[Rfam]
RNA sequence: AUCAACUACUCAGUACUAAAUAAUUGAGCCUAUCUCAGUAACAAUGGUGCGUUCGUUUGAACAAGUUGACUACCCUAAGUCUUGAAACAGAGGCUACGUUAUACAAGAAUAUAUAGUCACCGGUGGGCAUUUGCCCUAACCUGCCGCUCUGAGGUAUAUGGUUAAACAAUUCUGUAGAGUAGGAAUAGUGCUGUAUACAAAUAAACCUUGUAUAACAUUGGGGAAGGGCACCUUAC
Numbered sequence: 001a002u003c004a005a006c007u008a009c010u011c012a013g014u015a016c017u018a019a020a021u022a023a024u025u026g027a028g029c030c031u032a033u034c035u036c037a038g039u040a041a042c043a044a045u046g047g048u049g050c051g052u053u054c055g056u057u058u059g060a061a062c063a064a065g066u067u068g069a070c071u072a073c074c075c076u077a078a079g080u081c082u083u084g085a086a087a088c089a090g091a092g093g094c095u096a097c098g099u100u101a102u103a104c105a106a107g108a109a110u111a112u113a114u115a116g117u118c119a120c121c122g123g124u125g126g127g128c129a130u131u132u133g134c135c136c137u138a139a140c141c142u143g144c145c146g147c148u149c150u151g152a153g154g155u156a157u158a159u160g161g162u163u164a165a166a167c168a169a170u171u172c173u174g175u176a177g178a179g180u181a182g183g184a185a186u187a188g189u190g191c192u193g194u195a196u197a198c199a200a201a202u203a204a205a206c207c208u209u210g211u212a213u214a215a216c217a218u219u220g221g222g223g224a225a226g227g228g229c230a231c232c233u234u235a236c
Stems, first nucleotide, its partner, number of pairs: 002069006010028001012025001014022002030046001073222003077218001078095005098216010117152002121146007132230006154198009166189002169186005

Shown here is a 236-nucleotide RNA sequence from Clostridium sp. CAG:678, a member of the family "HNH endonuclease-associated RNA and ORF (HEARO) RNA".
A search with the family's covariance model found it, with a score of 118 bits.
On this family, see Weinberg et al., Nature 2009: "Exceptional structured noncoding RNAs revealed by bacterial metagenome analysis".
Rfam classes the family as a non-coding RNA gene.